[Rfam]
RNA: c-di-AMP riboswitch aptamer (ydaO/yuaA leader)
RNA sequence: GCAGCGGCAACGCCGAGUCCGCCGUCGCGCGGAGCCGGGGAACCACCAUGCGCCGGACUCCAGCAGUCCCGCAUCGGGGUGAAUCGGCCUGUCCUCAGGCCGUAGGGCCACUUCCACGCCCGAACCCGUCAGCUAACCCGGUAGGCGGCCUGGAAGAAGGAGU
Numbered sequence: 001g002c003a004g005c006g007g008c009a010a011c012g013c014c015g016a017g018u019c020c021g022c023c024g025u026c027g028c029g030c031g032g033a034g035c036c037g038g039g040g041a042a043c044c045a046c047c048a049u050g051c052g053c054c055g056g057a058c059u060c061c062a063g064c065a066g067u068c069c070c071g072c073a074u075c076g077g078g079g080u081g082a083a084u085c086g087g088c089c090u091g092u093c094c095u096c097a098g099g100c101c102g103u104a105g106g107g108c109c110a111c112u113u114c115c116a117c118g119c120c121c122g123a124a125c126c127c128g129u130c131a132g133c134u135a136a137c138c139c140g141g142u143a144g145g146c147g148g149c150c151u152g153g154a155a156g157a158a159g160g161a162g163u
Stems, first nucleotide, its partner, number of pairs: 011147004018033005034142006044076001077127003085102004105121004